A member of the RNA family "epsC RNA" from Cohnella endophytica, 113 nucleotides long. The base pairs follow the family's consensus structure, which is taken from published work. The organism belongs to Cohnella, within Bacteria. The match comes from Rfam's covariance-model search (101 bits).
[Rfam]
RNA sequence: AGGUAAUGCCUACUACACCUUUAUCAUUGUAGGUACUCGAGCAUACUGUGGGCUGUUGACAGCCUUAGACGAUCAUCGUCGGUGGUGUGUUGUGAGGGGGGGUUGAAUGCCCC
Numbered sequence: 001a002g003g004u005a006a007u008g009c010c011u012a013c014u015a016c017a018c019c020u021u022u023a024u025c026a027u028u029g030u031a032g033g034u035a036c037u038c039g040a041g042c043a044u045a046c047u048g049u050g051g052g053c054u055g056u057u058g059a060c061a062g063c064c065u066u067a068g069a070c071g072a073u074c075a076u077c078g079u080c081g082g083u084g085g086u087g088u089g090u091u092g093u094g095a096g097g098g099g100g101g102g103u104u105g106a107a108u109g110c111c112c113c
Base pairs, nucleotide, nucleotide: 001020002019003018004017007035008034009033010032011031012030013029036096037095038094039093040091041090042089043088044087045086046085047084050065051064052063053062054061055060068080069079070078071077099113100112101111102110103109